Rfam assigns this 180-nucleotide RNA from Thermanaeromonas toyohensis to the family "glmS glucosamine-6-phosphate activated ribozyme aptamer". The base pairs follow the family's consensus structure, which is taken from published work. It scores 116 bits against the family's covariance model. Its family is annotated with regulation of gene expression and catalytic activity in the Gene Ontology.

RNA sequence: UUACUAAUUCAAGCGCCUGGACCGCCAGCUAAAGUUACACCCUUUAGGCUUUGAGCCGGCGGUUGACGAGGAAGGGGUUAAUCGAGGUUUUCGGCGGGUGCCCCUCGGUUGGUUACGACCGUUAAAGGCGCUACAAAACCCGGGAGCAAUCCCGGGGACAAAGGGCGCCGGGUAACCUUU
Numbered sequence: 001u002u003a004c005u006a007a008u009u010c011a012a013g014c015g016c017c018u019g020g021a022c023c024g025c026c027a028g029c030u031a032a033a034g035u036u037a038c039a040c041c042c043u044u045u046a047g048g049c050u051u052u053g054a055g056c057c058g059g060c061g062g063u064u065g066a067c068g069a070g071g072a073a074g075g076g077g078u079u080a081a082u083c084g085a086g087g088u089u090u091u092c093g094g095c096g097g098g099u100g101c102c103c104c105u106c107g108g109u110u111g112g113u114u115a116c117g118a119c120c121g122u123u124a125a126a127g128g129c130g131c132u133a134c135a136a137a138a139c140c141c142g143g144g145a146g147c148a149a150u151c152c153c154g155g156g157g158a159c160a161a162a163g164g165g166c167g168c169c170g171g172g173u174a175a176c177c178u179u180u
Stems, first nucleotide, its partner, number of pairs: 020064007029055001073105005082094004106121006127169006139156007